[Rfam]
Nucleotides: 093
Stems, first nucleotide, its partner, number of pairs: 001093007051058002
Number, partner (000 for none) and nucleotide at each position: 001093g002092u003091u004090c005089u006088g007087c008000a009000g010000u011000g012000u013000u014000c015000a016000u017000u018000u019000c020000a021000g022000a023000a024000a025000u026000a027000a028000a029000u030000u031000c032000g033000c034000a035000u036000g037000u038000c039000a040000g041000a042000c043000u044000u045000c046000a047000g048000a049000a050000a051058u052057u053000u054000u055000c056000a057052a058051a059000c060000c061000g062000a063000u064000g065000a066000g067000a068000a069000u070000g071000a072000a073000a074000a075000u076000u077000c078000u079000g080000u081000u082000a083000c084000u085000u086000a087007g088006c089005a090004g091003a092002a093001u
The family of this 93-nucleotide RNA from Glycine max is "Small nucleolar RNA R64/Z200 family". On this family, see Galardi et al., Mol Cell Biol 2002: "Purified box C/D snoRNPs are able to reproduce site-specific 2'-O-methylation of target RNA in vitro". Pairs were carried over by alignment from the consensus structure, which was predicted with PFOLD. The family's RNA type in Rfam is C/D-box small nucleolar RNA.